[Rfam]
RNA sequence: GAGGCCGAACCGCCGAGUCCCCGGGUCGCAACCAGUGUCCCGAGGAGCCGGGGACCCCACUCCCGGCCGCCCGGGACAGCGUCCAGGGAAGCGGCCGGCAGGGGUGAAUCCGUAUUCGCGCGCGGACCGAUCCGCGCGUGCCUGCGGACGGGCUGCUCCGGCCCGAACCCGUCAGCUAACUCGGUAGGCGGACGAGGAGAGGAGAA
Numbered sequence: 001g002a003g004g005c006c007g008a009a010c011c012g013c014c015g016a017g018u019c020c021c022c023g024g025g026u027c028g029c030a031a032c033c034a035g036u037g038u039c040c041c042g043a044g045g046a047g048c049c050g051g052g053g054a055c056c057c058c059a060c061u062c063c064c065g066g067c068c069g070c071c072c073g074g075g076a077c078a079g080c081g082u083c084c085a086g087g088g089a090a091g092c093g094g095c096c097g098g099c100a101g102g103g104g105u106g107a108a109u110c111c112g113u114a115u116u117c118g119c120g121c122g123c124g125g126a127c128c129g130a131u132c133c134g135c136g137c138g139u140g141c142c143u144g145c146g147g148a149c150g151g152g153c154u155g156c157u158c159c160g161g162c163c164c165g166a167a168c169c170c171g172u173c174a175g176c177u178a179a180c181u182c183g184g185u186a187g188g189c190g191g192a193c194g195a196g197g198a199g200a201g202g203a204g205a206a
Stems, first nucleotide, its partner, number of pairs: 011190004018046003047185006057101001102170003110147004150164004
The record is a 206-nucleotide RNA sequence from Actinomadura litoris, which matches "c-di-AMP riboswitch aptamer (ydaO/yuaA leader)" in Rfam. The match comes from Rfam's covariance-model search (47 bits). NCBI's taxonomy places the organism under Bacteria, Bacillati, Actinomycetota, Thermomonosporaceae, Actinomadura.